[Rfam]
RNA sequence: GAUGCUGGACCUGCUGGCACCACAGGCACAGCUGCUGUGCUGCACCUGUGACAUUGGGGCAAAGAGGAAAUUGCUAUUUCUAUGCUCGGUGCUCAGAACAGUGAGCACUGAGAAUGGUUUGUAACCUGAUAUUC
Numbered sequence: 001g002a003u004g005c006u007g008g009a010c011c012u013g014c015u016g017g018c019a020c021c022a023c024a025g026g027c028a029c030a031g032c033u034g035c036u037g038u039g040c041u042g043c044a045c046c047u048g049u050g051a052c053a054u055u056g057g058g059g060c061a062a063a064g065a066g067g068a069a070a071u072u073g074c075u076a077u078u079u080c081u082a083u084g085c086u087c088g089g090u091g092c093u094c095a096g097a098a099c100a101g102u103g104a105g106c107a108c109u110g111a112g113a114a115u116g117g118u119u120u121g122u123a124a125c126c127u128g129a130u131a132u133u134c
Stems, first nucleotide, its partner, number of pairs: 003061002005057004022049004073125001080117003085112002090107006
Dot-bracket structure: ..((((((.............((((....................))))....))))..))...........(......(((..((...((((((......))))))...))..))).......).........
This 134-nucleotide RNA from Rousettus aegyptiacus belongs to the Rfam family "Small nucleolar RNA SNORA43". NCBI's taxonomy places the organism under Eukaryota, Deuterostomia, Gnathostomata, Euteleostomi, Rousettus. The family's consensus secondary structure was predicted with RNAfold. Rfam describes the family as follows. ACA43 is a member of the H/ACA class of snoRNA that guide the sites of modification of uridines to pseudouridines. Gene Ontology terms of the family: RNA processing and nucleolus. Clan: SNORA17 clan. The match comes from Rfam's covariance-model search (119 bits).